[Rfam]
RNA sequence: UAAUGAACAUAGAAAAAGGAGCUGGUCUGCAAACCAACUCCAAUGCAGAACCGUUAAAAAGACGGUAGCUCUGUUAAACGAAAAUAAUCC
Number, nucleotide and partner (000 for none) at each position: 001u000002a000003a000004u000005g000006a000007a000008c000009a000010u000011a000012g000013a000014a000015a000016a000017a000018g000019g000020a000021g000022c000023u036024g035025g034026u033027c000028u000029g000030c000031a000032a000033a026034c025035c024036a023037a000038c000039u000040c000041c000042a000043a000044u000045g000046c000047a000048g000049a000050a066051c065052c064053g063054u062055u061056a000057a000058a000059a000060a000061g055062a054063c053064g052065g051066u050067a000068g000069c000070u000071c000072u000073g000074u000075u000076a000077a000078a000079c000080g000081a000082a000083a000084a000085u000086a000087a000088u000089c000090c000

The record is a 90-nucleotide RNA sequence from Streptococcus urinalis, which matches "RNA anti-toxin A" in Rfam. The source organism's lineage runs through Bacteria, Bacillati, Bacillota, Streptococcus and Streptococcus urinalis. Rfam 15.1 lists 190 matches to the family in 120 species. For this family Rfam cites "Abundance of type I toxin-antitoxin systems in bacteria: searches for new candidates and discovery of novel families" (Fozo et al., Nucleic Acids Res, 2010). Rfam classes the family as an antitoxin RNA. The base pairs follow the family's consensus structure, which was predicted with RNAalifold.